[Rfam]
RNA sequence: CUUGAAAUACUCGGGAGCAUUUUGCUGAGAGGCCGAUAUUUCGGCGACCGAUAUAACCUGAUCCAGUUCAUACUGGCGUAGGGAGUAUUUCUUUUCGAUAA
Numbered sequence: 001c002u003u004g005a006a007a008u009a010c011u012c013g014g015g016a017g018c019a020u021u022u023u024g025c026u027g028a029g030a031g032g033c034c035g036a037u038a039u040u041u042c043g044g045c046g047a048c049c050g051a052u053a054u055a056a057c058c059u060g061a062u063c064c065a066g067u068u069c070a071u072a073c074u075g076g077c078g079u080a081g082g083g084a085g086u087a088u089u090u091c092u093u094u095u096c097g098a099u100a101a
Stems, first nucleotide, its partner, number of pairs: 006089005011051004017025003032045005057082004063076004
Dot-bracket structure: .....(((((((((..(((...)))......(((((....)))))..)))).....((((..((((......))))..))))..)))))............
Annotation:
The record is a 101-nucleotide RNA from Brevinema andersonii, which matches "TPP riboswitch aptamer (THI element)" in Rfam.